[Rfam]
RNA sequence: GGCCUCCCUCUGCGGGGCAAUUGAUUGUGGGGCUCCAUGAUUGAUAGCUCUGCGGAGGGAGGCC
Numbered sequence: 001g002g003c004c005u006c007c008c009u010c011u012g013c014g015g016g017g018c019a020a021u022u023g024a025u026u027g028u029g030g031g032g033c034u035c036c037a038u039g040a041u042u043g044a045u046a047g048c049u050c051u052g053c054g055g056a057g058g059g060a061g062g063c064c
Base pairs, nucleotide, nucleotide: 001064002063003062004061005060006059007058008057009056010055011054012053013052014051015050016049017048018047020045021044022043023042024041025040026039027038028037029036030035
Rfam assigns this 64-nucleotide RNA from Myotis brandtii to the family "mir-9242 microRNA precursor family". Lineage of the source: Eukaryota > Opisthokonta > Vertebrata > Amniota > Myotis. Rfam 15.1 lists 940 matches to the family in 18 species. Rfam links the family to the GO terms miRNA-mediated post-transcriptional gene silencing and RISC complex. Pairs were carried over by alignment from the consensus structure, which was predicted with RNAalifold.